Shown here is a 54-nucleotide sequence from Conger conger, a member of the family "UnaL2 LINE 3' element". The family's RNA type in Rfam is cis-regulatory element. About the family: The eel long interspersed element (LINE) UnaL2 and its partner short interspersed element (SINE) share a conserved 3' tail containing a stem-loop that is critical for their retrotransposition. It scores 58 bits against the family's covariance model. A reference for the family is Baba et al. (2004), "Solution structure of an RNA stem-loop derived from the 3' conserved region of eel LINE UnaL2", RNA.
[Rfam]
RNA sequence: CGUCUAAUCAACUGUAAGUUGCUUUGGAUAAAAGCAUCUGCUAAAUAACUCUAA
Numbered sequence: 001c002g003u004c005u006a007a008u009c010a011a012c013u014g015u016a017a018g019u020u021g022c023u024u025u026g027g028a029u030a031a032a033a034g035c036a037u038c039u040g041c042u043a044a045a046u047a048a049c050u051c052u053a054a
Stems, first nucleotide, its partner, number of pairs: 013043001014041003020036006